[Rfam]
RNA sequence: AAACUAAUGGGUCUUCUCUUCCCGCUUCUUCCCAGAGUUGGAGUUGGGAAAAGCUGAGUUGAGAGGGCAAUUAAAAAACAAA
Dot-bracket structure: .............(((((..(.((....((((((..........))))))....)).)..))))).................